Notes:
MIR168 microRNA precursor family: a 155-nucleotide RNA sequence from Acer yangbiense.
RNA sequence: UUACCGGCGGUCUCUGACUCGCUUGGUGCAGGUCGGGAACUAAUUGGCUCUCUGUUUAGCCAAAUGGCUAGUUGUCAUUGGUUGUUUCUAUCAAUUGAAUGGAAAAGAGAAUUGGAUCCCGCUUUGCAUCAACUGAAUCGGAGACCGAGGUGAGA
Dot-bracket structure: ............((..(.((..((((((((((.(((((.((((((................................................................)))))).))))).))))))))))..)).)..)).............
A reference for the family is Reinhart et al. (2002), "MicroRNAs in plants", Genes Dev. The source organism's lineage runs through Eukaryota, Euphyllophyta, Mesangiospermae, Sapindaceae and Acer.